[Rfam]
RNA sequence: UGACCAAGGGGCCGGGACGUUCUGAUUGCUUAUGAUUGGAGUGACCUAGGGGUACAGGGAGUGCCCCCGCCAAGGGCCAGGUCAGGAGAAAG
Numbered sequence: 001u002g003a004c005c006a007a008g009g010g011g012c013c014g015g016g017a018c019g020u021u022c023u024g025a026u027u028g029c030u031u032a033u034g035a036u037u038g039g040a041g042u043g044a045c046c047u048a049g050g051g052g053u054a055c056a057g058g059g060a061g062u063g064c065c066c067c068c069g070c071c072a073a074g075g076g077c078c079a080g081g082u083c084a085g086g087a088g089a090a091a092g
Stems, first nucleotide, its partner, number of pairs: 001084005010078004014047003018043001020041008049067007

ivy-DE RNA: a 92-nucleotide RNA sequence from Pseudomonas sp. M47T1.
Rfam classes the family as a cis-regulatory element.
The source organism's lineage runs through Bacteria, Pseudomonadati, Pseudomonadota, Pseudomonadaceae and Pseudomonas.
The family's consensus secondary structure is taken from published work.